[Rfam]
RNA sequence: GAGGCUGUAUCACUUCGUGAACGGUACUCCCGGAGUAUUUUUGUAUCUAUCGUGUAAUCUUAAAUCAAUACGUGCAAGGACAAAAAUCUGCUCAGAGCCUGUGUGGACCGAGACAGAAGG
Number, nucleotide and partner (000 for none) at each position: 001g029002a028003g027004g025005c024006u023007g022008u021009a000010u020011c019012a000013c000014u000015u000016c000017g000018u000019g011020a010021a008022c007023g006024g005025u004026a000027c003028u002029c001030c000031c000032g000033g000034a000035g000036u000037a000038u000039u000040u000041u000042u000043g000044u000045a000046u000047c000048u000049a000050u000051c000052g000053u000054g000055u000056a000057a000058u000059c000060u000061u000062a000063a000064a000065u000066c000067a000068a000069u000070a000071c000072g000073u000074g000075c000076a000077a000078g000079g000080a000081c000082a000083a000084a000085a000086a000087u000088c116089u115090g114091c112092u111093c110094a000095g108096a000097g000098c106099c105100u000101g000102u000103g000104u000105g099106g098107a000108c095109c000110g093111a092112g091113a000114c090115a089116g088117a000118a000119g000120g000
The record is a 120-nucleotide sequence from Brevibacillus brevis, which matches "pan motif" in Rfam. Rfam classes the family as a cis-regulatory element. Taxonomically the source falls in Brevibacillus brevis (Bacteria, Bacillota, Caryophanales, Paenibacillaceae).